[Rfam]
RNA sequence: GUCAUCAAGUGAUGAAAUUGGGAAAAAAUCUUAGGACACCUUCCUACAUAGCUUUAAUGUUAAAAGCUAUGGAUGAGAAUACCAUUUCCUUUCUGAUGAUGAC
Number, nucleotide and partner (000 for none) at each position: 001g103002u102003c101004a100005u099006c098007a097008a000009g000010u000011g000012a000013u000014g000015a000016a000017a000018u000019u000020g000021g000022g000023a000024a000025a000026a000027a000028a000029u000030c000031u000032u000033a000034g000035g000036a000037c000038a000039c000040c000041u000042u000043c000044c000045u000046a000047c000048a000049u000050a000051g000052c000053u000054u000055u000056a000057a000058u000059g000060u000061u000062a000063a000064a000065a000066g000067c000068u000069a000070u000071g000072g000073a000074u000075g000076a000077g000078a000079a000080u000081a000082c000083c000084a000085u000086u000087u000088c000089c000090u000091u000092u000093c000094u000095g000096a000097u007098g006099a005100u004101g003102a002103c001

Annotation
A member of the RNA family "Small nucleolar RNA snoR31/Z110/Z27" from Durio zibethinus, 103 nucleotides long. NCBI's taxonomy places the organism under Eukaryota, Magnoliopsida, Mesangiospermae, Pentapetalae, Durio. Rfam describes the family as follows. This family contains several related snoRNAs including R31, Z27 and Z110. The family has 8 seed sequences and 571 matches in Rfam 15.1. Rfam classes the family as a C/D-box small nucleolar RNA.